[Rfam]
RNA sequence: GUGUUUUUAAUGACGGUUUGUCUUUAAACUCGACAGAAGAAGCAGACCUGAUACCAAACAC
Dot-bracket structure: (((((.........(((((((.((.....(.....)..)).)))))))........)))))
A member of the RNA family "Selenocysteine insertion sequence 1" from Amphiprion percula, 61 nucleotides long.
A reference for the family is Lambert et al. (2002), "A survey of metazoan selenocysteine insertion sequences", Biochimie.
A search with the family's covariance model found it, with a score of 40 bits.
The family's RNA type in Rfam is cis-regulatory element.
The incorporation of selenocysteine into a protein sequence is directed by an in-frame UGA codon (usually a stop codon) within the coding region of the mRNA. Selenoprotein mRNAs contain a conserved secondary structure in the 3' UTR that is required for the distinction of UGA stop from UGA selenocysteine. The selenocysteine insertion sequence (SECIS) is around 60 nt in length and adopts a hairpin structure which is sufficiently well-defined and conserved to act as a computational screen for selenoprotein genes.